[Rfam]
RNA sequence: CCUUGCCUGCUCUGAUGGUGCUUCAGGCGAAAAUGUUGAUCCAGCAAAUUAGAUCAUUUUGGAAGCCAGAUUAGGUCAUGUGGUGUGCAUACCUCAUAGCAGAGGCAGCCUAAACAGAUCUGGAGGCAUCCACCUGUAGAAUCAGGGAUCUAAUUUUCGCUUACACCCCAGAGCGGGUGUUUA
Numbered sequence: 001c002c003u004u005g006c007c008u009g010c011u012c013u014g015a016u017g018g019u020g021c022u023u024c025a026g027g028c029g030a031a032a033a034u035g036u037u038g039a040u041c042c043a044g045c046a047a048a049u050u051a052g053a054u055c056a057u058u059u060u061g062g063a064a065g066c067c068a069g070a071u072u073a074g075g076u077c078a079u080g081u082g083g084u085g086u087g088c089a090u091a092c093c094u095c096a097u098a099g100c101a102g103a104g105g106c107a108g109c110c111u112a113a114a115c116a117g118a119u120c121u122g123g124a125g126g127c128a129u130c131c132a133c134c135u136g137u138a139g140a141a142u143c144a145g146g147g148a149u150c151u152a153a154u155u156u157u158c159g160c161u162u163a164c165a166c167c168c169c170a171g172a173g174c175g176g177g178u179g180u181u182u183a
Base pairs, nucleotide, nucleotide: 004179005178006177007176008175009174010173011172012171013170014169017167018166019165035154036153037152038150039149040148041147042146061131062130063129065127066126067125075120079116080115081114087109088108092105093104094103095102
The record is a 183-nucleotide sequence from a Nitrospirota bacterium, which matches "6S / SsrS RNA" in Rfam. The family has 150 seed sequences and 5,006 matches in Rfam 15.1. By type it is a non-coding RNA gene.